Rfam assigns this 88-nucleotide RNA sequence to the family "c-di-GMP-II-GAG riboswitch aptamer".

RNA sequence: CAUCCUGCUGGAAGCGACAAACCGCGAUUCGUGUUGAACCGGUCACCUAGAAUCGCGGGAGCAAGUGGUGAGACCGACCAGAAUUCUU
Dot-bracket structure: .(...(.((((..((......((((((((...........[[[[[[[...))))))))..))....]]]]]..]]..)))).)...).
Rfam links the family to the GO terms cyclic-di-GMP binding and regulation of gene expression.
On this family, see Weinberg et al., Proc Natl Acad Sci U S A 2017: "Bioinformatic analysis of riboswitch structures uncovers variant classes with altered ligand specificity".